This 91-nucleotide RNA sequence from Candidatus Accumulibacter regalis belongs to the Rfam family "Glycine riboswitch aptamer". The base pairs follow the family's consensus structure.
Nucleotides: 091
Stems, first nucleotide, its partner, number of pairs: 006086005012080002020035004037070003040066002044064003050058002
Number, partner (000 for none) and nucleotide at each position: 001000g002000c003000g004000g005000c006086g007085c008084g009083a010082a011000g012080g013079g014000g015000a016000g017000a018000g019000g020035g021034c022033g023032g024000c025000a026000a027000g028000g029000c030000a031000g032023c033022c034021g035020c036000c037070g038069c039068c040066g041065a042000a043000g044064g045063c046062g047000c048000a049000a050058u051057c052000c053000a054000c055000c056000c057051g058050g059000a060000a061000a062046c063045g064044c065041u066040c067000a068039g069038g070037c071000a072000a073000a074000a075000a076000g077000g078000a079013c080012c081000g082010u083009u084008c085007g086006u087000g088000c089000a090000a091000g